Record summary
Shown here is a 145-nucleotide RNA sequence from Jeotgalibacillus campisalis, a member of the family "Ribosomal protein L10 leader". The match comes from Rfam's covariance-model search (76 bits). This family is a putative r-protein leader autoregulatory structure found in B. subtilis and other low-GC Gram-positive bacteria. It is located in the 5' untranslated regions of mRNAs encoding ribosomal proteins L10 and L12 (rplJ-rplL). A Rho-independent transcription terminator structure that is probably involved in regulation is included at the 3' end. NCBI's taxonomy places the organism under Bacteria, Bacillati, Caryophanales, Caryophanaceae, Jeotgalibacillus.
[Rfam]
RNA sequence: AGUAUAUAACCAUUUGUACCGCAGACAGCAGGUGUCCAUUGGGCUUAAUUCCCUGCCGAGGUCAUGACGAUAAAAGAAUUUUCUUUUUAUUGAAAUGAUACGCCUCAAUGUCUGCAGCAGACAUUGAGGCUUUUUGAAUGUUCGA
Numbered sequence: 001a002g003u004a005u006a007u008a009a010c011c012a013u014u015u016g017u018a019c020c021g022c023a024g025a026c027a028g029c030a031g032g033u034g035u036c037c038a039u040u041g042g043g044c045u046u047a048a049u050u051c052c053c054u055g056c057c058g059a060g061g062u063c064a065u066g067a068c069g070a071u072a073a074a075a076g077a078a079u080u081u082u083c084u085u086u087u088u089a090u091u092g093a094a095a096u097g098a099u100a101c102g103c104c105u106c107a108a109u110g111u112c113u114g115c116a117g118c119a120g121a122c123a124u125u126g127a128g129g130c131u132u133u134u135u136g137a138a139u140g141u142u143c144g145a
Stems, first nucleotide, its partner, number of pairs: 028056005034044003102130013